[Rfam]
RNA: Glycine riboswitch aptamer
RNA sequence: CGCGCUGCUGCGGGAGAGAGCCGGCCCAGCCGGCCGCCGAAGGCGCAACCCGCCCGGAAUCGCUCAGGCAAAAGGACCGCGGCAGCAGG
Numbered sequence: 001c002g003c004g005c006u007g008c009u010g011c012g013g014g015a016g017a018g019a020g021c022c023g024g025c026c027c028a029g030c031c032g033g034c035c036g037c038c039g040a041a042g043g044c045g046c047a048a049c050c051c052g053c054c055c056g057g058a059a060u061c062g063c064u065c066a067g068g069c070a071a072a073a074g075g076a077c078c079g080c081g082g083c084a085g086c087a088g089g
Base pairs, nucleotide, nucleotide: 006084007083008082009081010080011079012078013077020034021033022032023031036069037068038067039065040064043063044062045061049057050056